[Rfam]
RNA sequence: AACCCCCAGUUAGACUGGUGGUUCCGUUUAGCUUUAGCGAUGAGAAACUAUUAAAAAAAUCCUCCUUUGUAUAUAAUUAAUCUGUGGUCUGGCAACUACAAAUUAAUAUUAAAAGGCACAAAGGA
Dot-bracket structure: ((((.(((((...))))).))))....(((((....))..)))...................((((((((.(.((..(.((.((((((......)))))).))..)...)).)....))))))))
Numbered sequence: 001a002a003c004c005c006c007c008a009g010u011u012a013g014a015c016u017g018g019u020g021g022u023u024c025c026g027u028u029u030a031g032c033u034u035u036a037g038c039g040a041u042g043a044g045a046a047a048c049u050a051u052u053a054a055a056a057a058a059a060u061c062c063u064c065c066u067u068u069g070u071a072u073a074u075a076a077u078u079a080a081u082c083u084g085u086g087g088u089c090u091g092g093c094a095a096c097u098a099c100a101a102a103u104u105a106a107u108a109u110u111a112a113a114a115g116g117c118a119c120a121a122a123g124g125a
Stems, first nucleotide, its partner, number of pairs: 001023004006018005028043003031038002063125008072113001074111002078106001080103002083100006
About this RNA
The record is a 125-nucleotide RNA sequence from Peptostreptococcus stomatis, which matches "STnc490 Hfq binding RNA" in Rfam. A search with the family's covariance model found it, with a score of 65 bits.